[Rfam]
RNA sequence: GCUGUGAUGUAUGCAUAGUUUCUAUCUGGGUCUAGCAGUUUCUGUGUCUUGCAUUCAGAUCUAGCUAUCCACACAAACAUCAUGCAGCCAAAGAGUAGCUUGACAUCAUAGUACUGGUCUAGUGUGUGUCUUUGGAUACAUGUCCCCCUGAUCGGCCUCCAAAUUCUUGCAUACAA
Numbered sequence: 001g002c003u004g005u006g007a008u009g010u011a012u013g014c015a016u017a018g019u020u021u022c023u024a025u026c027u028g029g030g031u032c033u034a035g036c037a038g039u040u041u042c043u044g045u046g047u048c049u050u051g052c053a054u055u056c057a058g059a060u061c062u063a064g065c066u067a068u069c070c071a072c073a074c075a076a077a078c079a080u081c082a083u084g085c086a087g088c089c090a091a092a093g094a095g096u097a098g099c100u101u102g103a104c105a106u107c108a109u110a111g112u113a114c115u116g117g118u119c120u121a122g123u124g125u126g127u128g129u130c131u132u133u134g135g136a137u138a139c140a141u142g143u144c145c146c147c148c149u150g151a152u153c154g155g156c157c158u159c160c161a162a163a164u165u166c167u168u169g170c171a172u173a174c175a176a
Stems, first nucleotide, its partner, number of pairs: 013085004030074002033071001035069001037066002041059002043053003101169003105165001114155006121149002124146001125140006
RNA: Small nucleolar RNA SNORA23
Organism: Jaculus jaculus